RNA: U5 spliceosomal RNA
Organism: Rickenella mellea
Nucleotides: 116
Stems, first nucleotide, its partner, number of pairs: 003079004009067007017059003027053008100115006
Number, partner (000 for none) and nucleotide at each position: 001000a002000a003079c004078g005077g006076c007000u008000g009067a010066g011065g012064g013063c014062g015061g016000a017059g018058c019057a020000a021000c022000a023000u024000a025000a026000c027053a028052a029051u030050g031049c032048c033047c034046u035000c036000g037000c038000c039000u040000u041000u042000u043000a044000c045000u046034a047033g048032g049031g050030c051029a052028u053027u054000c055000c056000g057019u058018g059017u060000g061015c062014c063013g064012c065011c066010c067009u068000c069000u070000c071000a072000u073000a074000a075000a076006g077005c078004c079003g080000a081000u082000u083000c084000c085000c086000c087000a088000a089000u090000c091000u092000u093000u094000c095000g096000a097000a098000c099000u100115g101114a102113a103112c104111u105110c106000c107000u108000u109000c110105g111104a112103g113102u114101u115100c116000c